Background:
This 75-nucleotide RNA from Streptomyces diastaticus belongs to the Rfam family "ASpks TB sRNA". Pairs were carried over by alignment from the consensus structure, which is taken from published work. Rfam 15.1 lists 9,052 matches to the family in 683 species.
[Rfam]
RNA sequence: CUUCACCGACCCCAGCCACAGCGGCCGUCCCUCCGGCCGCUCCUGGCCGUAGGUGGCCAUCAGGGCCUGGGCCUC
Numbered sequence: 001c002u003u004c005a006c007c008g009a010c011c012c013c014a015g016c017c018a019c020a021g022c023g024g025c026c027g028u029c030c031c032u033c034c035g036g037c038c039g040c041u042c043c044u045g046g047c048c049g050u051a052g053g054u055g056g057c058c059a060u061c062a063g064g065g066c067c068u069g070g071g072c073c074u075c
Stems, first nucleotide, its partner, number of pairs: 015025003031071003038065001044059002047056003